[Rfam]
RNA sequence: UGCAAUUUGAUGAUAAAAUCAAGGCUUGUUCUCAAAACAUUCGCCGUUGCCGCGUAAGAGUUUUCGGACCUGACAGGGUUGAGAGCCAGUGUUGUUUUGUCCUUCCUUGGAUGUCUGAUGCA
Numbered sequence: 001u002g003c004a005a006u007u008u009g010a011u012g013a014u015a016a017a018a019u020c021a022a023g024g025c026u027u028g029u030u031c032u033c034a035a036a037a038c039a040u041u042c043g044c045c046g047u048u049g050c051c052g053c054g055u056a057a058g059a060g061u062u063u064u065c066g067g068a069c070c071u072g073a074c075a076g077g078g079u080u081g082a083g084a085g086c087c088a089g090u091g092u093u094g095u096u097u098u099g100u101c102c103u104u105c106c107u108u109g110g111a112u113g114u115c116u117g118a119u120g121c122a
Stems, first nucleotide, its partner, number of pairs: 001122004060086006
Record summary: The record is a 122-nucleotide sequence from Triticum aestivum, which matches "Small nucleolar RNA SNORD14" in Rfam. For this family Rfam cites "An essential domain in Saccharomyces cerevisiae U14 snoRNA is absent in vertebrates, but conserved in other yeasts" (Samarsky et al., Nucleic Acids Res, 1996). By type it is a C/D-box small nucleolar RNA. From the family's description: U14 small nucleolar RNA (U14 snoRNA) is required for early cleavages of eukaryotic precursor rRNAs. Its family is annotated with nucleolus and RNA processing in the Gene Ontology. The match comes from Rfam's covariance-model search (70 bits).